[Rfam]
FMN riboswitch aptamer (RFN element): a 146-nucleotide RNA sequence from Alkalicoccobacillus porphyridii.
It scores 112 bits against the family's covariance model.
The family's consensus secondary structure is taken from published work.
RNA sequence: UUUUUGCUUCGGGGCCGGGUGAAAAUCCCGACCGGCGGUGAUGAGACGUAUUGUCUCUUAGUCCGUGACCCGUUUUUCUUUGAAAAACGGUGGAUCUGGUGAAACUCCAGGGCCGACAGUGACAGUCUGGAUGGGAGAAGGAAAAA
Numbered sequence: 001u002u003u004u005u006g007c008u009u010c011g012g013g014g015c016c017g018g019g020u021g022a023a024a025a026u027c028c029c030g031a032c033c034g035g036c037g038g039u040g041a042u043g044a045g046a047c048g049u050a051u052u053g054u055c056u057c058u059u060a061g062u063c064c065g066u067g068a069c070c071c072g073u074u075u076u077u078c079u080u081u082g083a084a085a086a087a088c089g090g091u092g093g094a095u096c097u098g099g100u101g102a103a104a105c106u107c108c109a110g111g112g113c114c115g116a117c118a119g120u121g122a123c124a125g126u127c128u129g130g131a132u133g134g135g136a137g138a139a140g141g142a143a144a145a146a
Stems, first nucleotide, its partner, number of pairs: 003144003007140004017029003031126002033115002035066004061113002070090002095111005117129003